[Rfam]
RNA sequence: UUGGGUUAAAUCAAUGUGUCAUACAUUUUGGAAAUAAAACCCGCAUAAAGUGGUGGGACAUGCAUUGAUUUUAUCCAA
Numbered sequence: 001u002u003g004g005g006u007u008a009a010a011u012c013a014a015u016g017u018g019u020c021a022u023a024c025a026u027u028u029u030g031g032a033a034a035u036a037a038a039a040c041c042c043g044c045a046u047a048a049a050g051u052g053g054u055g056g057g058a059c060a061u062g063c064a065u066u067g068a069u070u071u072u073a074u075c076c077a078a
Stems, first nucleotide, its partner, number of pairs: 001078006008071011022055002024052007